RNA: Bacillus-plasmid RNA
Organism: Bacillus mycoides
Nucleotides: 073
Base pairs, nucleotide, nucleotide: 001064002063003062004061005060006059007058008057009056
Number, partner (000 for none) and nucleotide at each position: 001064u002063a003062u004061g005060u006059c007058a008057a009056c010000g011000g012000u013000a014000a015000g016000c017000g018000g019000a020000c021000g022000a023000a024000c025000g026000a027000a028000g029000c030000a031000a032000a033000g034000c035000g036000a037000a038000g039000u040000g041000a042000a043000g044000g045000a046000g047000c048000a049000u050000u051000a052000a053000g054000g055000a056009g057008u058007u059006g060005a061004c062003a063002u064001a065000u066000u067000u068000a069000c070000c071000a072000c073000a